[Rfam]
The family of this 209-nucleotide sequence from Drosophila willistoni is "R2 RNA element".
It scores 119 bits against the family's covariance model.
A reference for the family is Ruschak et al. (2004), "Secondary structure models of the 3' untranslated regions of diverse R2 RNAs", RNA.
Gene Ontology term of the family: regulation of reverse transcription.
By type it is a cis-regulatory element.
This family represents the 3' UTR region of the R2 retrotransposable element. This family is known to interact with the R2-encoded reverse transcriptase in a reaction known as target primed reverse transcription (TPRT).
RNA sequence: AUGUGCUAACCUCUAGUUUAUCUUAUACUUUUGCCUUCUACCUUGGCAUUCCAUCUAAAAAGGUACAAACAUCACAUUGUCAAAAAGAGGUUGUUUUAGUACGUAGGCGCUGUGGGACUUCAUUGUCCCGAUGAUGCAGCGAAUCAUGCAUACGAGAUUGUCCAGUAGUUGGUUGCUCGUAUCUUUAGAAGAUAGCCAAAUGCCUCAUC
Numbered sequence: 001a002u003g004u005g006c007u008a009a010c011c012u013c014u015a016g017u018u019u020a021u022c023u024u025a026u027a028c029u030u031u032u033g034c035c036u037u038c039u040a041c042c043u044u045g046g047c048a049u050u051c052c053a054u055c056u057a058a059a060a061a062g063g064u065a066c067a068a069a070c071a072u073c074a075c076a077u078u079g080u081c082a083a084a085a086a087g088a089g090g091u092u093g094u095u096u097u098a099g100u101a102c103g104u105a106g107g108c109g110c111u112g113u114g115g116g117a118c119u120u121c122a123u124u125g126u127c128c129c130g131a132u133g134a135u136g137c138a139g140c141g142a143a144u145c146a147u148g149c150a151u152a153c154g155a156g157a158u159u160g161u162c163c164a165g166u167a168g169u170u171g172g173u174u175g176c177u178c179g180u181a182u183c184u185u186u187a188g189a190a191g192a193u194a195g196c197c198a199a200a201u202g203c204c205u206c207a208u209c
Base pairs, nucleotide, nucleotide: 039065040064041063042062043061044060087206088205089204090203092199099149100148101147103145108141109140110139111138112137113136114129115128116127117126118125151181152180153179154178155177156176